Overview: DUF805b RNA: a 38-nucleotide sequence from Chitinophaga solisilvae. The family is grouped with related families in Rfam's "DUF805 clan".
RNA sequence: AGGCAGGAUUCCGAAAAUGCCUCAAAAAAGAGUAGGAG
Numbered sequence: 001a002g003g004c005a006g007g008a009u010u011c012c013g014a015a016a017a018u019g020c021c022u023c024a025a026a027a028a029a030g031a032g033u034a035g036g037a038g
Base pairs, nucleotide, nucleotide: 002021003020004019005018010037011036012035